[Rfam]
Rfam assigns this 118-nucleotide sequence from Brachypodium distachyon to the family "Small nucleolar RNA snoR104".

RNA sequence: AGGUAGCAUUCAAAAGAUAAGAUGCCUACCCGAUACAAUCUUCCUACAGUUAAAUUGUCAUUUCCUGCUUGUGGUAUCAUUAGCAAGUUCUGCAAGUCUCAAAUGACAAGACAUUAGU
Numbered sequence: 001a002g003g004u005a006g007c008a009u010u011c012a013a014a015a016g017a018u019a020a021g022a023u024g025c026c027u028a029c030c031c032g033a034u035a036c037a038a039u040c041u042u043c044c045u046a047c048a049g050u051u052a053a054a055u056u057g058u059c060a061u062u063u064c065c066u067g068c069u070u071g072u073g074g075u076a077u078c079a080u081u082a083g084c085a086a087g088u089u090c091u092g093c094a095a096g097u098c099u100c101a102a103a104u105g106a107c108a109a110g111a112c113a114u115u116a117g118u
Stems, first nucleotide, its partner, number of pairs: 002030002005027001006025005056111001058109001067097008076088002
Annotation: Lineage of the source: Eukaryota > Euphyllophyta > Liliopsida > Pooideae > Brachypodium. Rfam classes the family as an H/ACA-box small nucleolar RNA.